[Rfam]
RNA sequence: GUGAGUGGGAGCCCCAGUGUGUGUUGGGGCUGUGACGGGUGGGCAGCCAGGCCUCUGAGCCUCCCUCAUCUGUCUGCCCCAG
Numbered sequence: 001g002u003g004a005g006u007g008g009g010a011g012c013c014c015c016a017g018u019g020u021g022u023g024u025u026g027g028g029g030c031u032g033u034g035a036c037g038g039g040u041g042g043g044c045a046g047c048c049a050g051g052c053c054u055c056u057g058a059g060c061c062u063c064c065c066u067c068a069u070c071u072g073u074c075u076g077c078c079c080c081a082g
Base pairs, nucleotide, nucleotide: 006081007080008079009078011077012076015072016071017070020068021067023065026063027062028061029060030059031057032056034053036051038048039047040046
RNA: mir-1238 microRNA precursor family